[Rfam]
RNA sequence: CCUUCGUGUCCUAAUCCUUGGAACCCUAUCAAUAUUGCCUCUGCUGUCCACUGUGUUCAGAGUAGUGCAAUAUUGCUAAUAGGGUUUCAGGUUUUAGAUUCU
Numbered sequence: 001c002c003u004u005c006g007u008g009u010c011c012u013a014a015u016c017c018u019u020g021g022a023a024c025c026c027u028a029u030c031a032a033u034a035u036u037g038c039c040u041c042u043g044c045u046g047u048c049c050a051c052u053g054u055g056u057u058c059a060g061a062g063u064a065g066u067g068c069a070a071u072a073u074u075g076c077u078a079a080u081a082g083g084g085u086u087u088c089a090g091g092u093u094u095u096a097g098a099u100u101c102u
Stems, first nucleotide, its partner, number of pairs: 020088010030075009041065005